[Rfam]
Nucleotides: 135
Base pairs, nucleotide, nucleotide: 002019003018004017005016006015007014027048028047029046030045031044032039064081065080066079067078068077069076070075083108084107085106086105092099093098110128111127112126113125114124115123
Number, partner (000 for none) and nucleotide at each position: 001000c002019c003018a004017c005016c006015u007014g008000u009000g010000c011000c012000a013000u014007c015006a016005g017004g018003u019002g020000a021000c022000u023000c024000u025000a026000c027048g028047g029046g030045c031044a032039u033000g034000a035000a036000u037000a038000a039032a040000g041000a042000g043000c044031u045030g046029c047028u048027c049000g050000g051000a052000c053000a054000a055000u056000g057000u058000a059000a060000c061000g062000a063000a064081g065080g066079u067078u068077a069076u070075c071000a072000a073000u074000u075070g076069g077068u078067a079066a080065c081064c082000g083108g084107g085106g086105u087000g088000c089000a090000a091000a092099u093098c094000g095000u096000g097000a098093g099092a100000c101000a102000a103000g104000c105086g106085c107084c108083c109000u110128c111127c112126u113125g114124a115123u116000a117000a118000c119000c120000a121000u122000g123115a124114u125113c126112g127111g128110g129000u130000g131000a132000g133000u134000g135000c